[Rfam]
hilD 3'UTR: a 309-nucleotide sequence from Salmonella enterica.
Target for hilD mRNA degradation by the degradosome and it may play an role in hilD and SPI-1 expression by serving as a target for the Hfq RNA chaperone.
The base pairs follow the family's consensus structure, which was predicted with RNAfold.
Rfam classes the family as a cis-regulatory element.
A reference for the family is Gaviria-Cantin et al. (2017), "Gre factors-mediated control of hilD transcription is essential for the invasion of epithelial cells by Salmonella enterica serovar Typhimurium", PLoS Pathog.
RNA sequence: CAUUUUUGGGUUUAUCACUCAAGAAAAGAUUUUCAUUAAAAUUUUAGCAAUUUAAAAUUCUGAACACUUUAUAACACACCAUAAUAGGAUUGGAGGUUAUUCAACAUCAUUGUUCUGUCCAGAAGACAGUCCGUACUGAUAUCUCUGACAAUUUAAAGCAAGGCUGUUCUUACAACGCGACUUUUGUGAACUCGUCAUCGCUAUGAUGACUGGUAAACCUAUAUUACCUUAUUCACAGCGUGAAAAUCUGUCCAGAUGAAAGUAUCUCCUUCCGGCUUUAACCCUGUGGACUAAAGCCGGCAUUUUAUU
Numbered sequence: 001c002a003u004u005u006u007u008g009g010g011u012u013u014a015u016c017a018c019u020c021a022a023g024a025a026a027a028g029a030u031u032u033u034c035a036u037u038a039a040a041a042u043u044u045u046a047g048c049a050a051u052u053u054a055a056a057a058u059u060c061u062g063a064a065c066a067c068u069u070u071a072u073a074a075c076a077c078a079c080c081a082u083a084a085u086a087g088g089a090u091u092g093g094a095g096g097u098u099a100u101u102c103a104a105c106a107u108c109a110u111u112g113u114u115c116u117g118u119c120c121a122g123a124a125g126a127c128a129g130u131c132c133g134u135a136c137u138g139a140u141a142u143c144u145c146u147g148a149c150a151a152u153u154u155a156a157a158g159c160a161a162g163g164c165u166g167u168u169c170u171u172a173c174a175a176c177g178c179g180a181c182u183u184u185u186g187u188g189a190a191c192u193c194g195u196c197a198u199c200g201c202u203a204u205g206a207u208g209a210c211u212g213g214u215a216a217a218c219c220u221a222u223a224u225u226a227c228c229u230u231a232u233u234c235a236c237a238g239c240g241u242g243a244a245a246a247u248c249u250g251u252c253c254a255g256a257u258g259a260a261a262g263u264a265u266c267u268c269c270u271u272c273c274g275g276c277u278u279u280a281a282c283c284c285u286g287u288g289g290a291c292u293a294a295a296g297c298c299g300g301c302a303u304u305u306u307a308u309u
Base pairs, nucleotide, nucleotide: 008067010065011063012062019055021053022052023051028043029042030041031040032039033038069078082258083257085255087253088252089251090250092248096149097148098147099146104142106140107139108138109137111135112134113133115129116128117127118126119125157233158232160230161229162228163227176188177187178186179185180184190214191213192212194210195209196208197207198206199205272300273299274298275297276296277295278294279293280292282289283288